[Rfam]
RNA sequence: ACGGAAGCCGCUAGAGGCCAAGUUCGAACCAGAAGAGAAGGUUCGCACUCCCGACAGAGGCAUCCCAGCACGGGACCUGCGAACCCACGCGGAGCACAUACCGCGAUAAUGGUAAAAGUGUUGCGGGCCUGCGUAAUUGCGAAGAGCGGACGCCAAGCGAGGAUCCCUUGGGUGGGGUCAGCAGCCGUAGCGCAUCGUAAGAACGCCGAGGCCACCCACGCAACCCACGCAGCACGCAUGGUAUCCGGAGUUCCGUGCUAGCGGGCGGCGAGCCGAAUCACUUCGGGGCGCCGCCCGCCUCAUUUU
Numbered sequence: 001a002c003g004g005a006a007g008c009c010g011c012u013a014g015a016g017g018c019c020a021a022g023u024u025c026g027a028a029c030c031a032g033a034a035g036a037g038a039a040g041g042u043u044c045g046c047a048c049u050c051c052c053g054a055c056a057g058a059g060g061c062a063u064c065c066c067a068g069c070a071c072g073g074g075a076c077c078u079g080c081g082a083a084c085c086c087a088c089g090c091g092g093a094g095c096a097c098a099u100a101c102c103g104c105g106a107u108a109a110u111g112g113u114a115a116a117a118g119u120g121u122u123g124c125g126g127g128c129c130u131g132c133g134u135a136a137u138u139g140c141g142a143a144g145a146g147c148g149g150a151c152g153c154c155a156a157g158c159g160a161g162g163a164u165c166c167c168u169u170g171g172g173u174g175g176g177g178u179c180a181g182c183a184g185c186c187g188u189a190g191c192g193c194a195u196c197g198u199a200a201g202a203a204c205g206c207c208g209a210g211g212c213c214a215c216c217c218a219c220g221c222a223a224c225c226c227a228c229g230c231a232g233c234a235c236g237c238a239u240g241g242u243a244u245c246c247g248g249a250g251u252u253c254c255g256u257g258c259u260a261g262c263g264g265g266c267g268g269c270g271a272g273c274c275g276a277a278u279c280a281c282u283u284c285g286g287g288g289c290g291c292c293g294c295c296c297g298c299c300u301c302a303u304u305u306u
Stems, first nucleotide, its partner, number of pairs: 003065002007061003011057002016052002021049002025045006067259008077248003081245002085241003089237003094233002099114004120224006126213005131206004137200006146193003150188003154184001162179006261298010273286003
RNA: Mycobacterium smegmatis small RNA 1